The record is a 128-nucleotide RNA sequence from Caenorhabditis remanei, which matches "Caenorhabditis snoRNA ceN67" in Rfam. Gene Ontology terms of the family: RNA processing and nucleolus. Rfam classes the family as an H/ACA-box small nucleolar RNA. A search with the family's covariance model found it, with a score of 74 bits.
[Rfam]
RNA sequence: AAUCCCAUUAUCUUUCCAUCAGACGAUUUUCAUGUCACUGAUGCCUUAAAAUGGGAGAAAUUAUCAGCUUGAGUAGAAAACAGGAAUUAUCUCCCCGGAGGUACAUCACGCUCUAUUGAACGACAUUU
Number, nucleotide and partner (000 for none) at each position: 001a000002a000003u056004c055005c054006c053007a052008u051009u050010a000011u000012c000013u000014u000015u000016c000017c043018a042019u041020c040021a039022g038023a000024c000025g036026a035027u034028u000029u000030u000031c000032a000033u000034g027035u026036c025037a000038c022039u021040g020041a019042u018043g017044c000045c000046u000047u000048a000049a000050a009051a008052u007053g006054g005055g004056a003057g000058a000059a000060a000061u000062u000063a000064u000065c000066a000067g121068c000069u000070u118071g117072a000073g000074u000075a000076g114077a000078a112079a000080a000081c000082a000083g000084g107085a106086a000087u000088u103089a102090u000091c101092u100093c000094c098095c000096c000097g000098g094099a000100g092101g091102u089103a088104c000105a000106u085107c084108a000109c000110g000111c000112u078113c000114u076115a000116u000117u071118g070119a000120a000121c067122g000123a000124c000125a000126u000127u000128u000

A reference for the family is Jia et al. (2007), "Systematic identification of non-coding RNA 2,2,7-trimethylguanosine cap structures in Caenorhabditis elegans", BMC Mol Biol.